[Rfam]
RNA sequence: UGUAAUUAGUAUAAAACACACACAUGUGUCGACACAUCGUCCGGGGUGCUUUAAGAAUACUCGAAUCCUUACGGUAAGGGUACUGCUUGGAGUCGGAGGAUGGGACGCAUGGAGGAUUAAC
Numbered sequence: 001u002g003u004a005a006u007u008a009g010u011a012u013a014a015a016a017c018a019c020a021c022a023c024a025u026g027u028g029u030c031g032a033c034a035c036a037u038c039g040u041c042c043g044g045g046g047u048g049c050u051u052u053a054a055g056a057a058u059a060c061u062c063g064a065a066u067c068c069u070u071a072c073g074g075u076a077a078g079g080g081u082a083c084u085g086c087u088u089g090g091a092g093u094c095g096g097a098g099g100a101u102g103g104g105a106c107g108c109a110u111g112g113a114g115g116a117u118u119a120a121c
Stems, first nucleotide, its partner, number of pairs: 023111008035102004040097004048093008
Dot-bracket structure: ......................((((((((....((((.((((....((((((((..............................)))))))))))).)))).))))))))..........
RNA: t44 RNA